Shown here is a 365-nucleotide RNA sequence from Alteribacter lacisalsi, a member of the family "transfer-messenger RNA".
The organism belongs to Alteribacter, within Bacteria.
The match comes from Rfam's covariance-model search (214 bits).
The family's RNA type in Rfam is non-coding RNA gene.
RNA sequence: GGGGACGUUCUGGAUUCGACAGGGAUAGGUCGAGCUUAAGUUGCGAGUCGAGCUGAGUGUCCUCGUAUAAAACGCUCAUCGCCUAUAGUUGGCAAAGAAGAAAACAACUUCGCACUAGCAGCGUAACAACUGCUUCAUGCGGUUCCUCCCUUCAUCGCCCAUGUGAAGGAUCAGGGACUCACUUAUAGUGGGAUACGCCUUGCGUCCACCGCCUGAGGACAAAAGGAAGAGAUCAACCAGGAUAGCCUCACGGAAGCCUGUCAGCUGGCUGAAGUGACGGCGAAAUUCCAAUAAACUGACUACACUCGUAGACGCUUAGGUGUCGUUAUCUCUGGACGUGGGUUCGAUUCCCACCGUCUCCACCA
Numbered sequence: 001g002g003g004g005a006c007g008u009u010c011u012g013g014a015u016u017c018g019a020c021a022g023g024g025a026u027a028g029g030u031c032g033a034g035c036u037u038a039a040g041u042u043g044c045g046a047g048u049c050g051a052g053c054u055g056a057g058u059g060u061c062c063u064c065g066u067a068u069a070a071a072a073c074g075c076u077c078a079u080c081g082c083c084u085a086u087a088g089u090u091g092g093c094a095a096a097g098a099a100g101a102a103a104a105c106a107a108c109u110u111c112g113c114a115c116u117a118g119c120a121g122c123g124u125a126a127c128a129a130c131u132g133c134u135u136c137a138u139g140c141g142g143u144u145c146c147u148c149c150c151u152u153c154a155u156c157g158c159c160c161a162u163g164u165g166a167a168g169g170a171u172c173a174g175g176g177a178c179u180c181a182c183u184u185a186u187a188g189u190g191g192g193a194u195a196c197g198c199c200u201u202g203c204g205u206c207c208a209c210c211g212c213c214u215g216a217g218g219a220c221a222a223a224a225g226g227a228a229g230a231g232a233u234c235a236a237c238c239a240g241g242a243u244a245g246c247c248u249c250a251c252g253g254a255a256g257c258c259u260g261u262c263a264g265c266u267g268g269c270u271g272a273a274g275u276g277a278c279g280g281c282g283a284a285a286u287u288c289c290a291a292u293a294a295a296c297u298g299a300c301u302a303c304a305c306u307c308g309u310a311g312a313c314g315c316u317u318a319g320g321u322g323u324c325g326u327u328a329u330c331u332c333u334g335g336a337c338g339u340g341g342g343u344u345c346g347a348u349u350c351c352c353a354c355c356g357u358c359u360c361c362a363c364c365a
Stems, first nucleotide, its partner, number of pairs: 001361007020334009032323001034321008044308005049065004054078007114138001117135001118133004142178006149169007158192005198226004204220003212241004245281003249276003256269003260300004338354005